[Rfam]
Shown here is a 72-nucleotide sequence from Vulpes vulpes, a member of the family "Small nucleolar RNA SNORD113/SNORD114 family". The family has 59 seed sequences and 5,721 matches in Rfam 15.1. The organism belongs to Vulpes, within Eukaryota. The family's consensus secondary structure is taken from published work. Clan: SNORD74 clan. Rfam classes the family as a C/D-box small nucleolar RNA. Gene Ontology terms of the family: nucleolus and RNA processing. From the family's description: The imprinted human domain at 14q32 contains two clusters of tandemly repeated small nucleolar RNAs named 14q(I) and 14q(II) snoRNAs. These two clusters are named SNORD113 and SNORD114 respectively in the HGNC approved gene symbol nomenclature. The snoRNAs found in both clusters are clearly related and are represented here by a single family. These snoRNAs are intron encoded and are processed from the tissue-specific non-coding human MEG8 RNA, which lies downstream of the imprinted genes DLK1 and GTL2. snoRNAs 14q(I) and 14q(II) differ from previously identified C/D box snoRNAs in their expression profiles and lack of complementarity to rRNA and snRNA. Homologues of these snoRNAs are found in the imprinted non-coding mouse transcript Rian, and in the rat non-coding Bsr (brain-specific repetitive) RNA.

RNA sequence: UGGAUCGAUGAUGACCACUGGUGGCAUAUGAUUUGUAUAUGAUGAAUACCUGUCUGGAACUCUGAGGGCUAA
Dot-bracket structure: .((.((...........................................................)).))..